RNA sequence: CCUGCCGAAGUUUCCCUCAGGAUAGCAGAGACUGGAAUAUGAUUUUUAAAGCAGUUUUAUGAGGUAAAGCGAAUGAUUAGAGGCCUUGGGGAUGUAACAUCCUUAACCUAUUCUCAAACUUUAAAUGCGUAAGAAGCUCCAGUUACUUAAUUGAACUGGCGGCCAAUUUCGAAUGCAUCAGUCUCUAGUGGGCCAUUUUUGGUAAGCAGAACUGGCGAUGCGGGAUGAACCGAACGUAGAGUUAAGGUGCCUAAAUUCACGCUCAUGUAGACACCAUAAAAGGUGUUAGUUCAUCUAGACAGCAGGGCGGUGGCCAUGGAAGUCGGAAUCCGCUAAGGAGUGUGUAACAACUCACCUGCCGAAUGAACUAGCCCUGAAAAUGGAUGGCGCUCAAGCGUGAUACCGAUACUCUACCGCCAAAAUUAUAAAAUGUAUAUUUUGGCGAGUAGGCAGGCGUGGGGGUUAGUAGAGAAGCUGUGGGCGUAAGCUCCAGUGGAACAACCUCUAGUGCAGAU
Numbered sequence: 001c002c003u004g005c006c007g008a009a010g011u012u013u014c015c016c017u018c019a020g021g022a023u024a025g026c027a028g029a030g031a032c033u034g035g036a037a038u039a040u041g042a043u044u045u046u047u048a049a050a051g052c053a054g055u056u057u058u059a060u061g062a063g064g065u066a067a068a069g070c071g072a073a074u075g076a077u078u079a080g081a082g083g084c085c086u087u088g089g090g091g092a093u094g095u096a097a098c099a100u101c102c103u104u105a106a107c108c109u110a111u112u113c114u115c116a117a118a119c120u121u122u123a124a125a126u127g128c129g130u131a132a133g134a135a136g137c138u139c140c141a142g143u144u145a146c147u148u149a150a151u152u153g154a155a156c157u158g159g160c161g162g163c164c165a166a167u168u169u170c171g172a173a174u175g176c177a178u179c180a181g182u183c184u185c186u187a188g189u190g191g192g193c194c195a196u197u198u199u200u201g202g203u204a205a206g207c208a209g210a211a212c213u214g215g216c217g218a219u220g221c222g223g224g225a226u227g228a229a230c231c232g233a234a235c236g237u238a239g240a241g242u243u244a245a246g247g248u249g250c251c252u253a254a255a256u257u258c259a260c261g262c263u264c265a266u267g268u269a270g271a272c273a274c275c276a277u278a279a280a281a282g283g284u285g286u287u288a289g290u291u292c293a294u295c296u297a298g299a300c301a302g303c304a305g306g307g308c309g310g311u312g313g314c315c316a317u318g319g320a321a322g323u324c325g326g327a328a329u330c331c332g333c334u335a336a337g338g339a340g341u342g343u344g345u346a347a348c349a350a351c352u353c354a355c356c357u358g359c360c361g362a363a364u365g366a367a368c369u370a371g372c373c374c375u376g377a378a379a380a381u382g383g384a385u386g387g388c389g390c391u392c393a394a395g396c397g398u399g400a401u402a403c404c405g406a407u408a409c410u411c412u413a414c415c416g417c418c419a420a421a422a423u424u425a426u427a428a429a430a431u432g433u434a435u436a437u438u439u440u441g442g443c444g445a446g447u448a449g450g451c452a453g454g455c456g457u458g459g460g461g462g463u464u465a466g467u468a469g470a471g472a473a474g475c476u477g478u479g480g481g482c483g484u485a486a487g488c489u490c491c492a493g494u495g496g497a498a499c500a501a502c503c504u505c506u507a508g509u510g511c512a513g514a515u
Stems, first nucleotide, its partner, number of pairs: 001454006011024001013022003027186007055134007067122001068120002074116003079111001081109003086106006093099001136163003139159006192216004197211005221232003236414005242408001246404003255401001257400001260397003281375003285372010302359005308332003314326002333337001338353001342351002415444009455510001457507008466499002474494002480489003
RNA: Eukaryotic large subunit ribosomal RNA, nucleotides 1098 to 1612
Organism: Smittium mucronatum